[Rfam]
RNA: ASdes TB sRNA
RNA sequence: UUGGCGGUCGGGUCGACUUCGCGUGUGACCACGAGGUACUCGCGCAACGCGAUGGCGUGCAGUUGCUC
Numbered sequence: 001u002u003g004g005c006g007g008u009c010g011g012g013u014c015g016a017c018u019u020c021g022c023g024u025g026u027g028a029c030c031a032c033g034a035g036g037u038a039c040u041c042g043c044g045c046a047a048c049g050c051g052a053u054g055g056c057g058u059g060c061a062g063u064u065g066c067u068c
Stems, first nucleotide, its partner, number of pairs: 004063002008059001011030003016026002035056001037054002040052005